[Rfam]
RNA sequence: GCCGCGAACGGGCAAACCCGCCGAAAGGCGGGGGCGCAAAGCCACGGGUCUACCGCGCGGCGGGAGCGGAAGGCGGCGACGGGCAGCCGCCGCGCCUCCGGCCCCGCCGGCUACGACGGCCGGGCUGCCGAA
Numbered sequence: 001g002c003c004g005c006g007a008a009c010g011g012g013c014a015a016a017c018c019c020g021c022c023g024a025a026a027g028g029c030g031g032g033g034g035c036g037c038a039a040a041g042c043c044a045c046g047g048g049u050c051u052a053c054c055g056c057g058c059g060g061c062g063g064g065a066g067c068g069g070a071a072g073g074c075g076g077c078g079a080c081g082g083g084c085a086g087c088c089g090c091c092g093c094g095c096c097u098c099c100g101g102c103c104c105c106g107c108c109g110g111c112u113a114c115g116a117c118g119g120c121c122g123g124g125c126u127g128c129c130g131a132a
Base pairs, nucleotide, nucleotide: 012037013036017032018031019030020029021028022027040126041125042124043123045122046121047120048117049116050115055111056110

Shown here is a 132-nucleotide RNA from Thermaerobacter marianensis, a member of the family "c-di-GMP-I riboswitch aptamer". Its family is annotated with cyclic-di-GMP binding in the Gene Ontology. The source organism's lineage runs through Bacteria, Bacillati, Eubacteriales, Thermaerobacter and Thermaerobacter marianensis.